Source information
Fluoride riboswitch aptamer (crcB RNA motif): a 68-nucleotide RNA from Acinetobacter larvae. A search with the family's covariance model found it, with a score of 42 bits. Lineage of the source: Bacteria > Pseudomonadati > Moraxellales > Moraxellaceae > Acinetobacter.

[Rfam]
RNA sequence: AAUUCUUCAGGAGAUGGUCAUCCUCCUCUAACAAACCGCCACGAUCGGCUAAUGAUGCCUACGUUUCC
Numbered sequence: 001a002a003u004u005c006u007u008c009a010g011g012a013g014a015u016g017g018u019c020a021u022c023c024u025c026c027u028c029u030a031a032c033a034a035a036c037c038g039c040c041a042c043g044a045u046c047g048g049c050u051a052a053u054g055a056u057g058c059c060u061a062c063g064u065u066u067c068c
Stems, first nucleotide, its partner, number of pairs: 010026004016059003020056003038049003